The record is a 70-nucleotide RNA from Rodentolepis nana, which matches "HDV ribozyme from F. prausnitzii" in Rfam. The match comes from Rfam's covariance-model search (45 bits). For this family Rfam cites "Widespread occurrence of self-cleaving ribozymes" (Webb et al., Science, 2009). The base pairs follow the family's consensus structure, which is taken from published work. Its family is annotated with catalytic activity in the Gene Ontology.
RNA sequence: GGGGUGCGAUAGACUUACCUCCACGUGGUGCGCCCUGGGCAAUGUAUACUCAUACGGCAAAAAUGUCUAU
Numbered sequence: 001g002g003g004g005u006g007c008g009a010u011a012g013a014c015u016u017a018c019c020u021c022c023a024c025g026u027g028g029u030g031c032g033c034c035c036u037g038g039g040c041a042a043u044g045u046a047u048a049c050u051c052a053u054a055c056g057g058c059a060a061a062a063a064u065g066u067c068u069a070u
Stems, first nucleotide, its partner, number of pairs: 001036007017029003043056005